Rfam assigns this 47-nucleotide sequence to the family "chrB-b RNA".
The family's RNA type in Rfam is cis-regulatory element.

[Rfam]
RNA sequence: ACGGGAUCGCAGACUCCCGUUCAGACGGUGUCCCGUCCAAGCGCUGC
Numbered sequence: 001a002c003g004g005g006a007u008c009g010c011a012g013a014c015u016c017c018c019g020u021u022c023a024g025a026c027g028g029u030g031u032c033c034c035g036u037c038c039a040a041g042c043g044c045u046g047c
Base pairs, nucleotide, nucleotide: 001020002019003018004017005016006015009047010046011045012044024037025036026035027034028033